A member of the RNA family "DUF3268 RNA", 120 nucleotides long.
The sequence is in the family's curated seed alignment.
[Rfam]
RNA sequence: GGCAGGAGCUUGCGUUCAGGCUCUCGAUACGUCUAUAGUAUGGCGUCAGACUUCGUCUCGGGAAGAGGCAGGGAAUCGUUACGGAUUUGCGCACUGAGCAAGUCCACAAUAACGCAGGCA
Numbered sequence: 001g002g003c004a005g006g007a008g009c010u011u012g013c014g015u016u017c018a019g020g021c022u023c024u025c026g027a028u029a030c031g032u033c034u035a036u037a038g039u040a041u042g043g044c045g046u047c048a049g050a051c052u053u054c055g056u057c058u059c060g061g062g063a064a065g066a067g068g069c070a071g072g073g074a075a076u077c078g079u080u081a082c083g084g085a086u087u088u089g090c091g092c093a094c095u096g097a098g099c100a101a102g103u104c105c106a107c108a109a110u111a112a113c114g115c116a117g118g119c120a
Stems, first nucleotide, its partner, number of pairs: 008119009025078004029046005051071002054068001056066002083105003087101004